A member of the RNA family "Iron response element I" from Pipistrellus kuhlii, 35 nucleotides long. Taxonomically the source falls in Pipistrellus (Eukaryota, Chordata, Vertebrata, Amniota). The match comes from Rfam's covariance-model search (35 bits). Rfam 15.1 lists 6,829 matches to the family in 599 species. The family's RNA type in Rfam is cis-regulatory element. Its family is annotated with response to iron ion in the Gene Ontology.
RNA sequence: CUGUCUCCUGCUUUGACAGUGUUUGGACGGAACAG
Numbered sequence: 001c002u003g004u005c006u007c008c009u010g011c012u013u014u015g016a017c018a019g020u021g022u023u024u025g026g027a028c029g030g031a032a033c034a035g
Stems, first nucleotide, its partner, number of pairs: 001035004006031003010028001012027005017021001